[Rfam]
RNA sequence: GAUUUUAAACAAUCUACUAGAUAACCAAGUGCAGAGAGGGUGAUACCUCGCUUGGAUUGUGUACAUAAUUCCCGUUGCACUUGUUGCGAGAUAUUGCAGGAAGAUAAGCAACUCUCUUUCGAGCAAUCGGAAGAGAUCAUGAAGUGAAAGAAGAUUGAGGGUGUACGCAGUAUAGAGAUUGUGCGUAGUUAGACCAGUAUCAUACGGUGGCGGUGAGAAUAGACGCUCUCGGUGAGAGAAUAAUCUGGCAAGGCCUUAUGUAGCAGUAAGAUCCAACCCAGAAAUGCUAAAAUAAGCCGUUUUGCACUUGAGGCCGAGCAAUCGGCCAAUAACACUAAAGAUAAGUACAAGUAGCCCAAAUUGUGCAGAUGAACGACGCUGAUAUUGUUAUGCUAAAACAAAUAUUCUGAAUGUCGGGUGAAAGUUGGACGUAACCAGUCGUACCUAGCCAUUGAACCGCUACGGAAGUUAUAGGGUCGCUCCUUAUGGCUCAGGCCGUGGUAAGCUAUCGGUCAAUAAAUUGCGUACAGUCGAAGUAGAGCGAAGGCUCAUUUGAUAGAUUGUUUAAAG
Numbered sequence: 001g002a003u004u005u006u007a008a009a010c011a012a013u014c015u016a017c018u019a020g021a022u023a024a025c026c027a028a029g030u031g032c033a034g035a036g037a038g039g040g041u042g043a044u045a046c047c048u049c050g051c052u053u054g055g056a057u058u059g060u061g062u063a064c065a066u067a068a069u070u071c072c073c074g075u076u077g078c079a080c081u082u083g084u085u086g087c088g089a090g091a092u093a094u095u096g097c098a099g100g101a102a103g104a105u106a107a108g109c110a111a112c113u114c115u116c117u118u119u120c121g122a123g124c125a126a127u128c129g130g131a132a133g134a135g136a137u138c139a140u141g142a143a144g145u146g147a148a149a150g151a152a153g154a155u156u157g158a159g160g161g162u163g164u165a166c167g168c169a170g171u172a173u174a175g176a177g178a179u180u181g182u183g184c185g186u187a188g189u190u191a192g193a194c195c196a197g198u199a200u201c202a203u204a205c206g207g208u209g210g211c212g213g214u215g216a217g218a219a220u221a222g223a224c225g226c227u228c229u230c231g232g233u234g235a236g237a238g239a240a241u242a243a244u245c246u247g248g249c250a251a252g253g254c255c256u257u258a259u260g261u262a263g264c265a266g267u268a269a270g271a272u273c274c275a276a277c278c279c280a281g282a283a284a285u286g287c288u289a290a291a292a293u294a295a296g297c298c299g300u301u302u303u304g305c306a307c308u309u310g311a312g313g314c315c316g317a318g319c320a321a322u323c324g325g326c327c328a329a330u331a332a333c334a335c336u337a338a339a340g341a342u343a344a345g346u347a348c349a350a351g352u353a354g355c356c357c358a359a360a361u362u363g364u365g366c367a368g369a370u371g372a373a374c375g376a377c378g379c380u381g382a383u384a385u386u387g388u389u390a391u392g393c394u395a396a397a398a399c400a401a402a403u404a405u406u407c408u409g410a411a412u413g414u415c416g417g418g419u420g421a422a423a424g425u426u427g428g429a430c431g432u433a434a435c436c437a438g439u440c441g442u443a444c445c446u447a448g449c450c451a452u453u454g455a456a457c458c459g460c461u462a463c464g465g466a467a468g469u470u471a472u473a474g475g476g477u478c479g480c481u482c483c484u485u486a487u488g489g490c491u492c493a494g495g496c497c498g499u500g501g502u503a504a505g506c507u508a509u510c511g512g513u514c515a516a517u518a519a520a521u522u523g524c525g526u527a528c529a530g531u532c533g534a535a536g537u538a539g540a541g542c543g544a545a546g547g548c549u550c551a552u553u554u555g556a557u558a559g560a561u562u563g564u565u566u567a568a569a570g
Stems, first nucleotide, its partner, number of pairs: 008566002012562001015559001018556001020554002025055005036049004058169006075111004080103003084099006113136010138146003177532007188522001190520001195512001198343003203339001206336004210300005226238004244282005252273002255270004261289004303367005313326005348424001354419004359414001406495004428444001446508003458505001461501001465497001468491001470488007539550004
Dot-bracket structure: .......((..(..(..(.((...(((((......((((......)))).)))))..((((((...........((((.(((.((((((....)))))).)))....)))).((((((((((....)))))))))).(((...))).................)))))).......(((((((....(.(....(..[[[..[..[[[[(((((...........((((.....)))).....(((((...((.((((..[[[[..)))).))....)))))...]]]]......)))))..(((((.....(((((....)))))......]]]]..].]]]....[.....[[[[.[...)))))......................................((((....].]]]]....]...(...............).[[[.........[..[...[..(.(((((((.....)))))))..))))).]...]...]]]]...).......).)...)))))))......((((....))))..)).)..)..)..))....

This 570-nucleotide sequence from Streptococcus phage Javan246 belongs to the Rfam family "ROOL RNA". Firmicutes, Fusobacteria (1 example), Tenericutes (1 example).